[Rfam]
Annotation
Glycine riboswitch aptamer: a 158-nucleotide RNA sequence from Peptoclostridium acidaminophilum. Taxonomically the source falls in Peptoclostridium acidaminophilum (Bacteria, Bacillati, Bacillota, Clostridia). Rfam's curators write: This family represents the bacterial glycine riboswitch.

RNA sequence: CCUCUGGAGAGACUCGACAGAGCACCGAAGGAGCAAGCCGCGCGUGUAUGUAUACCGGACCAUGUACAUUAUAUACUGCAUAAAAUGUGCCGUAUAAUGUAUUAUGGAUGAUGUAUGCAAUAUGAAAACGGCGAAUCUCUCAGGUAAAAGGACAGGGG
Numbered sequence: 001c002c003u004c005u006g007g008a009g010a011g012a013c014u015c016g017a018c019a020g021a022g023c024a025c026c027g028a029a030g031g032a033g034c035a036a037g038c039c040g041c042g043c044g045u046g047u048a049u050g051u052a053u054a055c056c057g058g059a060c061c062a063u064g065u066a067c068a069u070u071a072u073a074u075a076c077u078g079c080a081u082a083a084a085a086u087g088u089g090c091c092g093u094a095u096a097a098u099g100u101a102u103u104a105u106g107g108a109u110g111a112u113g114u115a116u117g118c119a120a121u122a123u124g125a126a127a128a129c130g131g132c133g134a135a136u137c138u139c140u141c142a143g144g145u146a147a148a149a150g151g152a153c154a155g156g157g158g
Base pairs, nucleotide, nucleotide: 001158002157003156004155005154006153013022014021015020024145025144026143027141028140031139032138033137037132038131039130040129